[Rfam]
RNA: Small Cajal body-specific RNA 7
Organism: Salvator merianae
RNA sequence: UUGAAAUGAUGAAAUAGAGGUUAUGCAAUAUAGGUGUAUGUAUGUUGGGAGAGGAUUGGAAAUUAUAGUAUAAAUUAAGUGUGUGUGUGUGUGUGUGUGUGUGUGUAGAAAUUGUGUAAGGAUGCAAACUAUGGGCACUGAACAAUGAAUCAAACUGUUGAUUUCGGAGUGCAUCUGAGGUACUGUUGCAAAUUUAAGGGGCUUCUUCUGCAACACUGCCAAUGAUUAGAGCCCCAAGUAUGCUUAUAGUUUGCACAAAUGCAUUUUCAACCUCUAACAGGUUCAUUUUGUUUAUACAAAGGAACUUGUAAUCUGAUCUAA
Numbered sequence: 001u002u003g004a005a006a007u008g009a010u011g012a013a014a015u016a017g018a019g020g021u022u023a024u025g026c027a028a029u030a031u032a033g034g035u036g037u038a039u040g041u042a043u044g045u046u047g048g049g050a051g052a053g054g055a056u057u058g059g060a061a062a063u064u065a066u067a068g069u070a071u072a073a074a075u076u077a078a079g080u081g082u083g084u085g086u087g088u089g090u091g092u093g094u095g096u097g098u099g100u101g102u103g104u105g106u107a108g109a110a111a112u113u114g115u116g117u118a119a120g121g122a123u124g125c126a127a128a129c130u131a132u133g134g135g136c137a138c139u140g141a142a143c144a145a146u147g148a149a150u151c152a153a154a155c156u157g158u159u160g161a162u163u164u165c166g167g168a169g170u171g172c173a174u175c176u177g178a179g180g181u182a183c184u185g186u187u188g189c190a191a192a193u194u195u196a197a198g199g200g201g202c203u204u205c206u207u208c209u210g211c212a213a214c215a216c217u218g219c220c221a222a223u224g225a226u227u228a229g230a231g232c233c234c235c236a237a238g239u240a241u242g243c244u245u246a247u248a249g250u251u252u253g254c255a256c257a258a259a260u261g262c263a264u265u266u267u268c269a270a271c272c273u274c275u276a277a278c279a280g281g282u283u284c285a286u287u288u289u290g291u292u293u294a295u296a297c298a299a300a301g302g303a304a305c306u307u308g309u310a311a312u313c314u315g316a317u318c319u320a321a
Stems, first nucleotide, its partner, number of pairs: 001320001003318002184215006191204002194201002